Bacterial large subunit ribosomal RNA: a 330-nucleotide part of an RNA from Sulfobacillus acidophilus. Gene Ontology terms of the family: ribosome and structural constituent of ribosome. Clan: LSU clan. The base pairs follow the family's consensus structure, which is taken from published work. The organism belongs to Sulfobacillus acidophilus, within Bacteria.
RNA sequence: CGAGUGAUCUCUCGUUAAGGAACUCGGCAAAAUACCCCCGUACCUUCGGAAGAAGGGGGCCCGGCUGCGUCCGCAGCCGGGGGCACCACAGCGGCCCAAGCGACUGUUUACCAAAAACACAGGUCCCUGCGAAGUCGUAAGACGCCGUAUAGGGGCUGACGCCUGCCCGGUGCUGGAAGGUUAAGGGGCGGGGUGCAAGCUCCAAACCGAAGCCCCAGUCAACGGCGGCCGUAACUAUAACGGUCCUAAGGUAGCGAAAUUCCUUGUCGGGUAAGUUCCGACCCGCACGAAAGGCGUAACGACUUGGGUACUGUCUCAACGAGAGGCUCG
Numbered sequence: 001c002g003a004g005u006g007a008u009c010u011c012u013c014g015u016u017a018a019g020g021a022a023c024u025c026g027g028c029a030a031a032a033u034a035c036c037c038c039c040g041u042a043c044c045u046u047c048g049g050a051a052g053a054a055g056g057g058g059g060c061c062c063g064g065c066u067g068c069g070u071c072c073g074c075a076g077c078c079g080g081g082g083g084c085a086c087c088a089c090a091g092c093g094g095c096c097c098a099a100g101c102g103a104c105u106g107u108u109u110a111c112c113a114a115a116a117a118c119a120c121a122g123g124u125c126c127c128u129g130c131g132a133a134g135u136c137g138u139a140a141g142a143c144g145c146c147g148u149a150u151a152g153g154g155g156c157u158g159a160c161g162c163c164u165g166c167c168c169g170g171u172g173c174u175g176g177a178a179g180g181u182u183a184a185g186g187g188g189c190g191g192g193g194u195g196c197a198a199g200c201u202c203c204a205a206a207c208c209g210a211a212g213c214c215c216c217a218g219u220c221a222a223c224g225g226c227g228g229c230c231g232u233a234a235c236u237a238u239a240a241c242g243g244u245c246c247u248a249a250g251g252u253a254g255c256g257a258a259a260u261u262c263c264u265u266g267u268c269g270g271g272u273a274a275g276u277u278c279c280g281a282c283c284c285g286c287a288c289g290a291a292a293g294g295c296g297u298a299a300c301g302a303c304u305u306g307g308g309u310a311c312u313g314u315c316u317c318a319a320c321g322a323g324a325g326g327c328u329c330g
Stems, first nucleotide, its partner, number of pairs: 001330004009325008018316003035059005044049001060081009082086001094309007101301002105119003122157008130147001134143003160296004165226003170223002172219005179214003185208002190203005227245006246250001256283001266282006